The record is a 153-nucleotide RNA sequence from Mizuhopecten yessoensis, which matches "U1 spliceosomal RNA" in Rfam.
The organism belongs to Mizuhopecten, within Eukaryota.
It scores 96 bits against the family's covariance model.
U1 is a small nuclear RNA (snRNA) component of the spliceosome (involved in pre-mRNA splicing). Its 5' end forms complementary base pairs with the 5' splice junction, thus defining the 5' donor site of an intron. There are significant differences in sequence and secondary structure between metazoan and yeast U1 snRNAs, the latter being much longer (568 nucleotides as compared to 164 nucleotides in human). Nevertheless, secondary structure predictions suggest that all U1 snRNAs share a 'common core' consisting of helices I, II, the proximal region of III, and IV. This family does not contain the larger yeast sequences.
The family is grouped with related families in Rfam's "U1 clan".
[Rfam]
RNA sequence: AUACUUACCUGUUGCAGGGAUAACUGUGGUCAAAAGGACGGUUUCCCCAGGGUGAGGUUUGUCCAUUGCACGGCGGACAGACUGACCUCUGCGAUCCCUAAUGUCGAUUCGGGCACGUAAUUUAUGAGUGAGGGAAUCUGCGUUCGCGCUCAA
Numbered sequence: 001a002u003a004c005u006u007a008c009c010u011g012u013u014g015c016a017g018g019g020a021u022a023a024c025u026g027u028g029g030u031c032a033a034a035a036g037g038a039c040g041g042u043u044u045c046c047c048c049a050g051g052g053u054g055a056g057g058u059u060u061g062u063c064c065a066u067u068g069c070a071c072g073g074c075g076g077a078c079a080g081a082c083u084g085a086c087c088u089c090u091g092c093g094a095u096c097c098c099u100a101a102u103g104u105c106g107a108u109u110c111g112g113g114c115a116c117g118u119a120a121u122u123u124a125u126g127a128g129u130g131a132g133g134g135a136a137u138c139u140g141c142g143u144u145c146g147c148g149c150u151c152a153a
Stems, first nucleotide, its partner, number of pairs: 013115003017047004023042005049090004054086001056083003060079005092111003095107002137152001140149003